RNA sequence: UGCAAGUUUCAGAGUGCAACAGAAGUGCCCAUGGUGCAUCCUUGUCAGAUUCUAGUGAAUCUUCAAAUUCUGCU
Dot-bracket structure: ............[[[..(.((((((((.......)))]..]]....((((((....)))))).....))))).)
Numbered sequence: 001u002g003c004a005a006g007u008u009u010c011a012g013a014g015u016g017c018a019a020c021a022g023a024a025g026u027g028c029c030c031a032u033g034g035u036g037c038a039u040c041c042u043u044g045u046c047a048g049a050u051u052c053u054a055g056u057g058a059a060u061c062u063u064c065a066a067a068u069u070c071u072g073c074u
Stems, first nucleotide, its partner, number of pairs: 013042002015038001018074001020072005025037003047062006